[Rfam]
RNA sequence: GUAGCUAAGCAGAAGCGCCCCGCUUCUCACCUGAUCGACGCUUCGGGCAGUUGACAGGUUUGCGAUUCUGGGAUGACGGGAUCUCUAGGUGUGGGCGUUUGCCUGCACCUUUUUCAUUUU
Number, nucleotide and partner (000 for none) at each position: 001g000002u000003a000004g000005c000006u000007a000008a000009g000010c000011a027012g026013a025014a024015g023016c022017g000018c000019c000020c000021c000022g016023c015024u014025u013026c012027u011028c000029a059030c058031c057032u000033g000034a000035u000036c000037g052038a051039c050040g048041c047042u000043u000044c000045g000046g000047g041048c040049a000050g039051u038052u037053g000054a000055c000056a000057g031058g030059u029060u000061u000062g000063c000064g000065a000066u000067u000068c000069u000070g000071g000072g000073a000074u000075g000076a000077c000078g000079g000080g000081a000082u000083c000084u000085c000086u000087a000088g000089g000090u107091g106092u105093g104094g103095g102096c101097g000098u000099u000100u000101g096102c095103c094104u093105g092106c091107a090108c000109c000110u000111u000112u000113u000114u000115c000116a000117u000118u000119u000120u000
Rfam assigns this 120-nucleotide sequence from Paludifilum halophilum to the family "Ribosomal protein L20 leader". The family's RNA type in Rfam is cis-regulatory leader. This family is a putative r-protein leader autoregulatory structure found in B. subtilis and other low-GC Gram-positive bacteria. The base pairs follow the family's consensus structure, which was predicted with CMfinder.